[Rfam]
RNA sequence: ACCCCUCGAAGGCGGUGAUUGAGUUUCUCUUACCUCCUUCAUACCUCCCUGUUGGACUAUGGCCGAGCUUCUGCUCGGCCUUUUUU
Numbered sequence: 001a002c003c004c005c006u007c008g009a010a011g012g013c014g015g016u017g018a019u020u021g022a023g024u025u026u027c028u029c030u031u032a033c034c035u036c037c038u039u040c041a042u043a044c045c046u047c048c049c050u051g052u053u054g055g056a057c058u059a060u061g062g063c064c065g066a067g068c069u070u071c072u073g074c075u076c077g078g079c080c081u082u083u084u085u086u
Base pairs, nucleotide, nucleotide: 008040009039010038011037012036061080062079063078064077065076066075067074068073
RNA: Singlet oxygen resistance RNA X